[Rfam]
RNA sequence: GUAGUUGGAUCUCCAAGCUUUUGGAAUGCUUCGAAUUC
Number, nucleotide and partner (000 for none) at each position: 001g000002u000003a000004g000005u016006u015007g014008g013009a000010u000011c000012u000013c008014c007015a006016a005017g000018c000019u000020u035021u034022u033023g032024g031025a030026a000027u000028g000029c000030u025031u024032c023033g022034a021035a020036u000037u000038c000